[Rfam]
RNA sequence: UGUCCCUUUAAAUUCAGUCCAGAGAGGCUGGCAAGGGAGGUAAUAAAUCGCGUGCAGCACAGAAAGACCUGUGUGCGCGUGUGCCUCCACGGCCUCUUUUGCUAAAGCAAGAGAGGUUUUUUAAU
Numbered sequence: 001u002g003u004c005c006c007u008u009u010a011a012a013u014u015c016a017g018u019c020c021a022g023a024g025a026g027g028c029u030g031g032c033a034a035g036g037g038a039g040g041u042a043a044u045a046a047a048u049c050g051c052g053u054g055c056a057g058c059a060c061a062g063a064a065a066g067a068c069c070u071g072u073g074u075g076c077g078c079g080u081g082u083g084c085c086u087c088c089a090c091g092g093c094c095u096c097u098u099u100u101g102c103u104a105a106a107g108c109a110a111g112a113g114a115g116g117u118u119u120u121u122u123a124a125u
Base pairs, nucleotide, nucleotide: 003038004037005036006035007034008033014031015030016029017028018027019026049081050080051079052078053077054076055075056074058073059072060071061070062069089120091118092117093116094115095114096113097112098111099110100109101108102107